[Rfam]
RNA sequence: GGAUUCCCGUCGAGUAAGAACUAGCCAUUCGCUCGUAACAAGUCUUGGAGGACUAAAGGUAACUUUAGUUUUUAAGCGUAGACAGUGAGGUGGCGGGCCGAAAGCCUAAUGGUUGAAGGGAUUGAGCUCCAUAAUGAUUGUAGUUCGAGAGGGCUGAUGCUUUAAGCGCUGCAGAAAGCUACAUUUUAUCUUUCGUUAAAGGCAAGAAUGAUAAAACCUCUCUGGAGUCAUAGACCU
Numbered sequence: 001g002g003a004u005u006c007c008c009g010u011c012g013a014g015u016a017a018g019a020a021c022u023a024g025c026c027a028u029u030c031g032c033u034c035g036u037a038a039c040a041a042g043u044c045u046u047g048g049a050g051g052a053c054u055a056a057a058g059g060u061a062a063c064u065u066u067a068g069u070u071u072u073u074a075a076g077c078g079u080a081g082a083c084a085g086u087g088a089g090g091u092g093g094c095g096g097g098c099c100g101a102a103a104g105c106c107u108a109a110u111g112g113u114u115g116a117a118g119g120g121a122u123u124g125a126g127c128u129c130c131a132u133a134a135u136g137a138u139u140g141u142a143g144u145u146c147g148a149g150a151g152g153g154c155u156g157a158u159g160c161u162u163u164a165a166g167c168g169c170u171g172c173a174g175a176a177a178g179c180u181a182c183a184u185u186u187u188a189u190c191u192u193u194c195g196u197u198a199a200a201g202g203c204a205a206g207a208a209u210g211a212u213a214a215a216a217c218c219u220c221u222c223u224g225g226a227g228u229c230a231u232a233g234a235c236c237u
Base pairs, nucleotide, nucleotide: 011035012034013033014032018030019029020028022205024203025202038086039085042083043082044081045080046078047077048073049072050071051070052069053068054067055066056065057064058063124229126228127227128226129225130224131223147222148221149220150219151218152217153179154178155177158173159172160171184216185215186214187213188212189211190210192208193207194206
This 237-nucleotide RNA sequence from Cytobacillus solani belongs to the Rfam family "Group II catalytic intron D1-D4-6". Rfam describes the family as follows. Group II introns are found in rRNA, tRNA and mRNA of organelles in fungi, plants and protists, and also in mRNA in bacteria. A reference for the family is Lehmann and Schmidt (2003), "Group II introns: structure and catalytic versatility of large natural ribozymes", Crit Rev Biochem Mol Biol.